[Rfam]
RNA: Ruegeria cis2 sRNA
Organism: Roseivivax marinus
RNA sequence: GCUGGAGUUGCGGGGGAAGUAAUUGACGAACAUGUGCCCCCGCGCCUGGUCGAUACAGUGGAACAGCGGGUUCCAGUCGAACAUCGCCAGAAGCUGCGGCGUCAGGGUAUUGGCCACGAACAUCUUGCCCGACGCGAUCAUGUUGGCGCGCUG
Numbered sequence: 001g002c003u004g005g006a007g008u009u010g011c012g013g014g015g016g017a018a019g020u021a022a023u024u025g026a027c028g029a030a031c032a033u034g035u036g037c038c039c040c041c042g043c044g045c046c047u048g049g050u051c052g053a054u055a056c057a058g059u060g061g062a063a064c065a066g067c068g069g070g071u072u073c074c075a076g077u078c079g080a081a082c083a084u085c086g087c088c089a090g091a092a093g094c095u096g097c098g099g100c101g102u103c104a105g106g107g108u109a110u111u112g113g114c115c116a117c118g119a120a121c122a123u124c125u126u127g128c129c130c131g132a133c134g135c136g137a138u139c140a141u142g143u144u145g146g147c148g149c150g151c152u153g
Base pairs, nucleotide, nucleotide: 003034004033007031008030009029014024015023041052042051064153065152066151067150068149070082071081072080073079086147087146088145089144090143092141093139097134098133100131101130103127104126105125106124107123108122110119111118112117